[Rfam]
RNA sequence: AUUGGAUUAAUGAUGUUUAGAAACUGCGUUAUCUAUCUGUAAUUUCCUACAUGGAAUUGAAGAUAAUAAUAACAUUCUGAGACCCAGU
Numbered sequence: 001a002u003u004g005g006a007u008u009a010a011u012g013a014u015g016u017u018u019a020g021a022a023a024c025u026g027c028g029u030u031a032u033c034u035a036u037c038u039g040u041a042a043u044u045u046c047c048u049a050c051a052u053g054g055a056a057u058u059g060a061a062g063a064u065a066a067u068a069a070u071a072a073c074a075u076u077c078u079g080a081g082a083c084c085c086a087g088u
Stems, first nucleotide, its partner, number of pairs: 001088005007082001
Shown here is an 88-nucleotide RNA sequence from Quercus lobata, a member of the family "Small nucleolar RNA snoR27".
Its Rfam clan is "snR68 clan".
The literature on the family includes a 2001 paper in RNA by Brown et al., "Multiple snoRNA gene clusters from Arabidopsis".
The source organism's lineage runs through Eukaryota, Tracheophyta, Magnoliopsida, Fagaceae and Quercus.
Pairs were carried over by alignment from the consensus structure, which was predicted with WAR.
A search with the family's covariance model found it, with a score of 79 bits.